[Rfam]
RNA sequence: AUGCUCACAAAGUAACUGUGAAAUGUUGAAUAUAUUUAAAUUCAUAUCACAGCCAGCUUUGAUGAGCGUUA
Numbered sequence: 001a002u003g004c005u006c007a008c009a010a011a012g013u014a015a016c017u018g019u020g021a022a023a024u025g026u027u028g029a030a031u032a033u034a035u036u037u038a039a040a041u042u043c044a045u046a047u048c049a050c051a052g053c054c055a056g057c058u059u060u061g062a063u064g065a066g067c068g069u070u071a
Stems, first nucleotide, its partner, number of pairs: 005065003008061005013055001016052006024046003
The record is a 71-nucleotide RNA sequence from Sipha flava, which matches "mir-2 microRNA precursor family" in Rfam.
Rfam links the family to the GO terms RISC complex and miRNA-mediated post-transcriptional gene silencing.
The match comes from Rfam's covariance-model search (64 bits).
On this family, see Lee and Ambros, Science 2001: "An extensive class of small RNAs in Caenorhabditis elegans".
Lineage of the source: Eukaryota > Eumetazoa > Dicondylia > Aphidoidea > Sipha.